[Rfam]
RNA: skipping-rope RNA
Organism: Paenibacillus polymyxa
RNA sequence: AGCCAAUGAAGUGGGAAAGGUUCCCGGCGCGCUUGCUUAUAGCAAGUUACCAGAAAUCAGGAUACGCCGCCCUGCAUUGACU
Number, nucleotide and partner (000 for none) at each position: 001a082002g081003c000004c079005a078006a077007u076008g075009a000010a000011g028012u027013g000014g025015g024016a000017a000018a000019g068020g067021u066022u000023c000024c015025c014026g000027g012028c011029g000030c053031g047032c046033u045034u044035g043036c042037u041038u000039a000040u000041a037042g036043c035044a034045a033046g032047u031048u000049a000050c000051c000052a000053g030054a000055a000056a000057u000058c074059a073060g072061g071062a000063u000064a000065c000066g021067c020068c019069g000070c000071c061072c060073u059074g058075c008076a007077u006078u005079g004080a000081c002082u001